[Rfam]
RNA sequence: GGCGCGGGCCGUUACUGGCGCGUGGGGAUGGAGAACCAUCGGGGAGCGGCCCCGUCACACGGACGUUUGCCGAGCGCCUGGGCCUUCCCG
Number, nucleotide and partner (000 for none) at each position: 001g000002g000003c000004g000005c000006g052007g051008g050009c049010c048011g047012u046013u000014a000015c043016u042017g078018g077019c076020g075021c074022g000023u000024g000025g000026g000027g000028a039029u038030g037031g036032a000033g000034a000035a000036c031037c030038a029039u028040c000041g000042g016043g015044g000045a000046g012047c011048g010049g009050c008051c007052c006053c000054g000055u000056c000057a000058c000059a000060c000061g000062g000063a000064c000065g000066u000067u000068u000069g083070c082071c081072g000073a000074g021075c020076g019077c018078c017079u000080g000081g071082g070083c069084c000085u000086u000087c000088c000089c000090g000
ZMP/ZTP riboswitch aptamer (pfl RNA motif): a 90-nucleotide sequence from Micromonospora lupini. Pairs were carried over by alignment from the consensus structure, which is taken from published work.